[Rfam]
RNA sequence: GGUUCGGGAGUCAGCCGACGGGACGGCUGGCAUGAAUGGAACCUUCCCCCUCUCUGCCCAAACGGCGCGCUCCUGUGGCCCGACAGGACCGCU
Numbered sequence: 001g002g003u004u005c006g007g008g009a010g011u012c013a014g015c016c017g018a019c020g021g022g023a024c025g026g027c028u029g030g031c032a033u034g035a036a037u038g039g040a041a042c043c044u045u046c047c048c049c050c051u052c053u054c055u056g057c058c059c060a061a062a063c064g065g066c067g068c069g070c071u072c073c074u075g076u077g078g079c080c081c082g083a084c085a086g087g088a089c090c091g092c093u
Stems, first nucleotide, its partner, number of pairs: 001043005010031008067092003071088005
RNA: Rhodo-rpoB RNA